The record is an 83-nucleotide RNA from Diatraea saccharalis, which matches "mir-263 microRNA precursor family" in Rfam. A search with the family's covariance model found it, with a score of 61 bits. Its Rfam clan is "mir-182 clan". Rfam links the family to the GO terms miRNA-mediated post-transcriptional gene silencing and RISC complex. The family's consensus secondary structure was predicted with RNAalifold.
RNA sequence: UAUCACUGGUCCUUGGCACUGGGAGAAUUCACAGGAGAUUAUUUGAAUGCCCGUGAAUUUCCUGAUGCCUCAGAUUAGUGUAG
Number, nucleotide and partner (000 for none) at each position: 001u000002a000003u000004c080005a079006c078007u077008g076009g075010u074011c000012c000013u000014u000015g069016g068017c067018a066019c000020u064021g063022g062023g060024a000025g059026a058027a000028u000029u056030c055031a054032c053033a000034g051035g000036a000037g000038a000039u000040u000041a000042u000043u000044u000045g000046a000047a000048u000049g000050c000051c034052c000053g032054u031055g030056a029057a000058u026059u025060u023061c000062c022063u021064g020065a000066u018067g017068c016069c015070u000071c000072a000073g000074a010075u009076u008077a007078g006079u005080g004081u000082a000083g000